[Rfam]
This 370-nucleotide sequence from Burkholderia ubonensis belongs to the Rfam family "permuted transfer-messenger RNA".
The base pairs follow the family's consensus structure, which is taken from published work.
Bacterial tmRNA, also known as 10Sa RNA or SsrA, is named for its dual tRNA and mRNA-like properties.
It is annotated as a non-coding RNA gene.
The source organism's lineage runs through Bacteria, Pseudomonadota, Betaproteobacteria, Burkholderiaceae and Burkholderia cepacia complex.
It is one of the family's seed sequences.
RNA sequence: CGUUGUAAUCCCUCUGGAUUUGACGUGUGUCGGAAAGGGAGUUCGAUUCUCCCUCACCUCCACCAAAUGCGCAUACACCUCCGGUGGGUGUACCUGACAGAGACUUCAACCCUUCAUGGUCGCCCAAACGCCAAUGCGGCAAGUACGGCGAGUGAUGCGGGAGUGGAUAAGACCACUUGAGAGUAGCUACCUAACAGGGGACAUGCGGUUCAACUCCGCAGUGUGUGCGUAUCUGAUGGGGGUGCCAGGUUUCGACGGCGCAACUAGAUGAAGGCGGCAACGCGGGCAGGCGACUACCCGGCAGGCUUCGGCUUGUGAACAGAGCGAAACCACAAGAGCCAAUGACGACUCUUUCCUGAUGGCCGCUUGA
Numbered sequence: 001c002g003u004u005g006u007a008a009u010c011c012c013u014c015u016g017g018a019u020u021u022g023a024c025g026u027g028u029g030u031c032g033g034a035a036a037g038g039g040a041g042u043u044c045g046a047u048u049c050u051c052c053c054u055c056a057c058c059u060c061c062a063c064c065a066a067a068u069g070c071g072c073a074u075a076c077a078c079c080u081c082c083g084g085u086g087g088g089u090g091u092a093c094c095u096g097a098c099a100g101a102g103a104c105u106u107c108a109a110c111c112c113u114u115c116a117u118g119g120u121c122g123c124c125c126a127a128a129c130g131c132c133a134a135u136g137c138g139g140c141a142a143g144u145a146c147g148g149c150g151a152g153u154g155a156u157g158c159g160g161g162a163g164u165g166g167a168u169a170a171g172a173c174c175a176c177u178u179g180a181g182a183g184u185a186g187c188u189a190c191c192u193a194a195c196a197g198g199g200g201a202c203a204u205g206c207g208g209u210u211c212a213a214c215u216c217c218g219c220a221g222u223g224u225g226u227g228c229g230u231a232u233c234u235g236a237u238g239g240g241g242g243u244g245c246c247a248g249g250u251u252u253c254g255a256c257g258g259c260g261c262a263a264c265u266a267g268a269u270g271a272a273g274g275c276g277g278c279a280a281c282g283c284g285g286g287c288a289g290g291c292g293a294c295u296a297c298c299c300g301g302c303a304g305g306c307u308u309c310g311g312c313u314u315g316u317g318a319a320c321a322g323a324g325c326g327a328a329a330c331c332a333c334a335a336g337a338g339c340c341a342a343u344g345a346c347g348a349c350u351c352u353u354u355c356c357u358g359a360u361g362g363c364c365g366c367u368u369g370a
Base pairs, nucleotide, nucleotide: 001282002281003280004279005278014273015272026262027261028260030258031257032256036054037053038052039051041049055244056243057242058241059240060239061238283315284314285313286312